[Rfam]
RNA sequence: AAAAAAAGGAGCAAUAGCUAAUCUCUUGUUCUAUCAAGAGAUUAGCUAUUGCUCCUUUU
Numbered sequence: 001a002a003a004a005a006a007a008g009g010a011g012c013a014a015u016a017g018c019u020a021a022u023c024u025c026u027u028g029u030u031c032u033a034u035c036a037a038g039a040g041a042u043u044a045g046c047u048a049u050u051g052c053u054c055c056u057u058u059u
Stems, first nucleotide, its partner, number of pairs: 005058012020043002023040006
A member of the RNA family "Plastid-psbA-4 3UTR RNA", 59 nucleotides long. From the family's description: Plastid psbA-4 is a non-coding RNA (ncRNA) present in plastids. It was identified in inverted repeat sequences in the 3 prime untranslate region (3UTR) of photosystem II quinone-binding protein (psbA). The family's consensus secondary structure was predicted with LocARNA. The literature on the family includes a 2023 paper in Plant Commun by Richter et al., "Retrograde signaling in plants: A critical review focusing on the GUN pathway and beyond".